Rfam assigns this 70-nucleotide RNA from Strongylus vulgaris to the family "mir-236 microRNA precursor family". Clan: mir-8 microRNA precursor clan. Its family is annotated with RISC complex and miRNA-mediated post-transcriptional gene silencing in the Gene Ontology. The base pairs follow the family's consensus structure, which was predicted with RNAalifold.

RNA sequence: GACUCGCGUCUUACCUGAACAAUAUUAGAAGUUUCUAUCUGUCUAAUACUGUCAGGUAAUGAUGCUAGUC
Number, nucleotide and partner (000 for none) at each position: 001g070002a069003c068004u067005c000006g065007c064008g063009u062010c061011u059012u058013a057014c056015c055016u054017g053018a000019a000020c051021a050022a000023u048024a047025u046026u045027a000028g044029a000030a042031g000032u000033u000034u000035c000036u000037a000038u000039c000040u000041g000042u030043c000044u028045a026046a025047u024048a023049c000050u021051g020052u000053c017054a016055g015056g014057u013058a012059a011060u000061g010062a009063u008064g007065c006066u000067a004068g003069u002070c001